[Rfam]
RNA sequence: GUCCUCGGUCAGUUUGCUGCUUUGCAUCCUGCUUUUAACUAACGUUUGCUGUGCAAAUCCAUGCAAAACGGACUGAGCAG
Dot-bracket structure: ...(((((((.((((((.(.(((((((...((...............)).)))))))..)..)))).)).)))))))...
Numbered sequence: 001g002u003c004c005u006c007g008g009u010c011a012g013u014u015u016g017c018u019g020c021u022u023u024g025c026a027u028c029c030u031g032c033u034u035u036u037a038a039c040u041a042a043c044g045u046u047u048g049c050u051g052u053g054c055a056a057a058u059c060c061a062u063g064c065a066a067a068a069c070g071g072a073c074u075g076a077g078c079a080g
Stems, first nucleotide, its partner, number of pairs: 004077007012069002014066004019060001021057007031049002
The record is an 80-nucleotide RNA from Oncorhynchus tshawytscha, which matches "mir-19 microRNA precursor family" in Rfam. Its Rfam clan is "mir-19 clan". It scores 50 bits against the family's covariance model. On this family, see Mourelatos et al., Genes Dev 2002: "miRNPs: a novel class of ribonucleoproteins containing numerous microRNAs".